[Rfam]
Nucleotides: 184
Stems, first nucleotide, its partner, number of pairs: 009184005016145006023139006029128001031126005043121004061070003071116007078107007086099005147162004
Number, partner (000 for none) and nucleotide at each position: 001000a002000a003000c004000u005000a006000u007000u008000a009184c010183a011182g012181u013180c014000g015000a016145u017144g018143a019142g020141g021140a022000u023139a024138g025137g026136u027135u028134a029128u030000a031126g032125u033124u034123c035122a036000u037000g038000u039000g040000u041000a042000a043121c044120a045119u046118c047000u048000g049000u050000g051000u052000u053000u054000g055000a056000g057000a058000a059000a060000u061070a062069a063068c064000u065000c066000u067000a068063g069062u070061u071116a072115u073114c074113c075112a076111a077110a078107g079106u080105g081104u082103u083102u084101u085000a086099c087098a088097c089096a090095a091000g092000u093000g094000u095090u096089u097088g098087u099086g100000u101084a102083a103082g104081a105080u106079a107078u108000u109000c110077u111076u112075u113074g114073g115072g116071u117000c118046g119045a120044u121043g122035u123034g124033g125032a126031u127000a128029g129000u130000g131000c132000c133000g134028u135027g136026g137025c138024c139023u140021u141020u142019u143018u144017c145016a146000c147162c148161a149160c150159c151000u152000u153000u154000a155000u156000a157000g158000c159150g160149g161148u162147g163000c164000u165000u166000u167000g168000a169000u170000u171000a172000u173000u174000a175000a176000c177000u178000g179000a180013g181012g182011c183010u184009g

Shown here is a 184-nucleotide RNA sequence from Saccharomyces arboricola, a member of the family "Small nucleolar RNA snR4".
The source organism's lineage runs through Eukaryota, Fungi, Dikarya, Saccharomyces and Saccharomyces arboricola.
Gene Ontology terms of the family: nucleolus and RNA processing.
The literature on the family includes a 1996 paper in Cell by Balakin et al., "The RNA world of the nucleolus: two major families of small RNAs defined by different box elements with related functions".